[Rfam]
RNA sequence: GGGUGACUGAUUUCUUUUGGUGUUCAGAGUCUUGGUCGAUUUCUAGCACCAUUUGAAAUCGGUUACAA
Numbered sequence: 001g002g003g004u005g006a007c008u009g010a011u012u013u014c015u016u017u018u019g020g021u022g023u024u025c026a027g028a029g030u031c032u033u034g035g036u037c038g039a040u041u042u043c044u045a046g047c048a049c050c051a052u053u054u055g056a057a058a059u060c061g062g063u064u065a066c067a068a
Stems, first nucleotide, its partner, number of pairs: 003066002005063001007062008018051005026044003
mir-29 microRNA precursor family: a 68-nucleotide sequence from Callorhinchus milii. The family's consensus secondary structure was predicted with PFOLD. Taxonomically the source falls in Callorhinchus (Eukaryota, Metazoa, Bilateria, Chimaeriformes). This family represents the microRNA (miRNA) precursors mir-29. Gene Ontology terms of the family: RISC complex and gene silencing by miRNA. On this family, see Ambros, Cell 2001: "microRNAs: tiny regulators with great potential". The match comes from Rfam's covariance-model search (66 bits).